[Rfam]
Rfam assigns this 65-nucleotide RNA from Sporosarcina sp. HYO08 to the family "Bacillaceae-1 RNA". The base pairs follow the family's consensus structure, which is taken from published work. The organism belongs to Sporosarcina, within Bacteria.
RNA sequence: ACUAGGGGAGCGCAGGCCAAGGACGCCAAGUCCUGAAAGUGCCUGCAUGACCAACAUCCUGUUGG
Numbered sequence: 001a002c003u004a005g006g007g008g009a010g011c012g013c014a015g016g017c018c019a020a021g022g023a024c025g026c027c028a029a030g031u032c033c034u035g036a037a038a039g040u041g042c043c044u045g046c047a048u049g050a051c052c053a054a055c056a057u058c059c060u061g062u063u064g065g
Base pairs, nucleotide, nucleotide: 012046013045014044015043016042017041027035051065052064053063054062055061